[Rfam]
RNA: MIR159 microRNA precursor family
RNA sequence: AUUAGUAAACGGGAGCUCCCUUCAGUCCAAUCACAGAGAAGAAUAGGAUGAAAUUUGUCUCCCGAAUCAUUCACACAUUCACAGUAUUACAGAGACGUAUUCUUCUACUGUGUUUGAAUGAAUGAGUCGGCAGCUAAUUCAAAUCCUUCUCCCUUCCAUAAGUGGACUGAAGGAAGCUCCCAAGAACCAUUAA
Numbered sequence: 001a002u003u004a005g006u007a008a009a010c011g012g013g014a015g016c017u018c019c020c021u022u023c024a025g026u027c028c029a030a031u032c033a034c035a036g037a038g039a040a041g042a043a044u045a046g047g048a049u050g051a052a053a054u055u056u057g058u059c060u061c062c063c064g065a066a067u068c069a070u071u072c073a074c075a076c077a078u079u080c081a082c083a084g085u086a087u088u089a090c091a092g093a094g095a096c097g098u099a100u101u102c103u104u105c106u107a108c109u110g111u112g113u114u115u116g117a118a119u120g121a122a123u124g125a126g127u128c129g130g131c132a133g134c135u136a137a138u139u140c141a142a143a144u145c146c147u148u149c150u151c152c153c154u155u156c157c158a159u160a161a162g163u164g165g166a167c168u169g170a171a172g173g174a175a176g177c178u179c180c181c182a183a184g185a186a187c188c189a190u191u192a193a
Stems, first nucleotide, its partner, number of pairs: 013179005019173002023169007036156001059133002062130003068124004076116001